[Rfam]
Rfam assigns this 83-nucleotide sequence from Chthoniobacter flavus to the family "Fluoride riboswitch aptamer (crcB RNA motif)".
RNA sequence: GCCCGUAACGGCAAUGGAUUUCUGCCGCCCGAGUGAUCGGGGAACCGCUUGGUAACGGCCAGGCUGAUGAUUCCUGUUUUCAC
Numbered sequence: 001g002c003c004c005g006u007a008a009c010g011g012c013a014a015u016g017g018a019u020u021u022c023u024g025c026c027g028c029c030c031g032a033g034u035g036a037u038c039g040g041g042g043a044a045c046c047g048c049u050u051g052g053u054a055a056c057g058g059c060c061a062g063g064c065u066g067a068u069g070a071u072u073c074c075u076g077u078u079u080u081c082a083c
Base pairs, nucleotide, nucleotide: 010026011025012024013023016074017073018072020070021069047064048063049062050061051060052059053058